[Rfam]
RNA sequence: UGUCAACACAUUAAAUGCCCUCGGCAGUUGUUUGCACUUGUCCUGCCGCGAGGUCCUGAGGUGUGUGAGA
Dot-bracket structure: .....(((((((.......((((.........................)))).......)))))))....
Numbered sequence: 001u002g003u004c005a006a007c008a009c010a011u012u013a014a015a016u017g018c019c020c021u022c023g024g025c026a027g028u029u030g031u032u033u034g035c036a037c038u039u040g041u042c043c044u045g046c047c048g049c050g051a052g053g054u055c056c057u058g059a060g061g062u063g064u065g066u067g068a069g070a
Stems, first nucleotide, its partner, number of pairs: 006066007020052004
Notes:
The family of this 70-nucleotide RNA from Trypanosoma theileri is "Trypanosomatid snoRNA TB9Cs1H3". For this family Rfam cites "A genome-wide analysis of C/D and H/ACA-like small nucleolar RNAs in Trypanosoma brucei reveals a trypanosome-specific pattern of rRNA modification" (Liang et al., RNA, 2005). It scores 38 bits against the family's covariance model. The family's consensus secondary structure was predicted with WAR. The family has 3 seed sequences and 40 matches in Rfam 15.1. The source organism's lineage runs through Eukaryota, Discoba, Euglenozoa, Kinetoplastea and Trypanosoma. By type it is an H/ACA-box small nucleolar RNA.